[Rfam]
RNA sequence: GCUGGCGAUGAUGACACACUUGCCCUCACUGAGAUCCGCUGCGAGGAUCGGUGUUGAGAACAUCCUCUGUGCUCACUGUGGCCUGAGCCUGC
Numbered sequence: 001g002c003u004g005g006c007g008a009u010g011a012u013g014a015c016a017c018a019c020u021u022g023c024c025c026u027c028a029c030u031g032a033g034a035u036c037c038g039c040u041g042c043g044a045g046g047a048u049c050g051g052u053g054u055u056g057a058g059a060a061c062a063u064c065c066u067c068u069g070u071g072c073u074c075a076c077u078g079u080g081g082c083c084u085g086a087g088c089c090u091g092c
Stems, first nucleotide, its partner, number of pairs: 001092002004089003

Small nucleolar RNA SNORD103/SNORD85: a 92-nucleotide RNA sequence from Halcyon senegalensis. Rfam links the family to the GO terms RNA processing and nucleolus. The literature on the family includes a 2003 paper in Nucleic Acids Res by Vitali et al., "Identification of 13 novel human modification guide RNAs". The source organism's lineage runs through Eukaryota, Saurischia, Coelurosauria, Neognathae and Halcyon. By type it is a C/D-box small nucleolar RNA.